[Rfam]
RNA sequence: AUUAAAUAAAGGCCUAAUCCCAUUAGGGAACGGAGGACCCAAUUUUUGGGGGUUAAUUCUACAUUGUAGAAGGGAUGUUCAACUCUUUCGCCAUCCUACCCGUCAGCUAACUUCGUCGGCUAAAGCGAAGGAGGUC
Number, nucleotide and partner (000 for none) at each position: 001a000002u000003u000004a000005a000006a000007u000008a000009a000010a000011g121012g120013c119014c118015u000016a000017a000018u029019c028020c027021c000022a000023u000024u000025a000026g000027g020028g019029a018030a116031c115032g114033g113034a112035g111036g000037a000038c000039c000040c049041a000042a000043u000044u000045u000046u000047u000048g000049g040050g101051g100052g099053u000054u000055a000056a000057u000058u070059c069060u068061a067062c000063a000064u000065u000066g000067u061068a060069g059070a058071a000072g000073g096074g095075a094076u093077g000078u000079u000080c000081a000082a000083c000084u000085c000086u000087u000088u000089c000090g000091c000092c000093a076094u075095c074096c073097u000098a000099c052100c051101c050102g000103u000104c000105a000106g000107c000108u000109a000110a000111c035112u034113u033114c032115g031116u030117c000118g014119g013120c012121u011122a000123a000124a000125g000126c000127g000128a000129a000130g000131g000132a000133g000134g000135u000136c000